The family of this 184-nucleotide sequence is "DUF2800 RNA". The family's consensus secondary structure is taken from published work. Rfam's curators put it in the seed alignment.
RNA sequence: GUCCUGAGCAAGACAUUAAACUGCUCACCACCUAAUACCGCAUUACCUGAUCACUGAUGGCUCAACGGUACCUGGUGGACAAGUUAAUACUGUAGCUGCCUUUUGAGCGGGUUUGCUGCAGACCGAAACGGAGGUUUCCGUUUGGACUGCGGUUGAUUCUUUACACCCAUUUUGCGGCAGCACC
Numbered sequence: 001g002u003c004c005u006g007a008g009c010a011a012g013a014c015a016u017u018a019a020a021c022u023g024c025u026c027a028c029c030a031c032c033u034a035a036u037a038c039c040g041c042a043u044u045a046c047c048u049g050a051u052c053a054c055u056g057a058u059g060g061c062u063c064a065a066c067g068g069u070a071c072c073u074g075g076u077g078g079a080c081a082a083g084u085u086a087a088u089a090c091u092g093u094a095g096c097u098g099c100c101u102u103u104u105g106a107g108c109g110g111g112u113u114u115g116c117u118g119c120a121g122a123c124c125g126a127a128a129c130g131g132a133g134g135u136u137u138c139c140g141u142u143u144g145g146a147c148u149g150c151g152g153u154u155g156a157u158u159c160u161u162u163a164c165a166c167c168c169a170u171u172u173u174g175c176g177g178c179a180g181c182a183c184c
Stems, first nucleotide, its partner, number of pairs: 028078005036070005041059005060108006093180001095178005115153005128141005